[Rfam]
RNA sequence: AUAAAUUGACAAGCAGGAAUGGCACCCUGCGCUCCUAUAUGAAACCUGAUAUGAUGGAUACGCCGCCCAUCCAAUUUUA
Dot-bracket structure: .(((((((....(((((...[[[..))))).(((......)).....)....(((((....]]]..)))))))).))))
RNA: skipping-rope RNA